Description
The record is a 110-nucleotide RNA sequence from Odobenus rosmarus, which matches "Small nucleolar RNA U6-53/MBII-28" in Rfam. By type it is a C/D-box small nucleolar RNA. Gene Ontology terms of the family: nucleolus and RNA processing. Rfam 15.1 lists 780 matches to the family in 403 species.
[Rfam]
RNA sequence: UCUCGAUGAUGAGUUGCCAUGCUAAUACUGAGUCACCAGGUAGGGCAGUGUUGCCCUUAUUUGGGUGCCAGUGAGUUUAACAAAACUUCUCACAUGGAGACCUGAGGGGC
Dot-bracket structure: ((((.....................................((((........))))................................................)))).
Numbered sequence: 001u002c003u004c005g006a007u008g009a010u011g012a013g014u015u016g017c018c019a020u021g022c023u024a025a026u027a028c029u030g031a032g033u034c035a036c037c038a039g040g041u042a043g044g045g046c047a048g049u050g051u052u053g054c055c056c057u058u059a060u061u062u063g064g065g066u067g068c069c070a071g072u073g074a075g076u077u078u079a080a081c082a083a084a085a086c087u088u089c090u091c092a093c094a095u096g097g098a099g100a101c102c103u104g105a106g107g108g109g110c
Stems, first nucleotide, its partner, number of pairs: 001109004042057004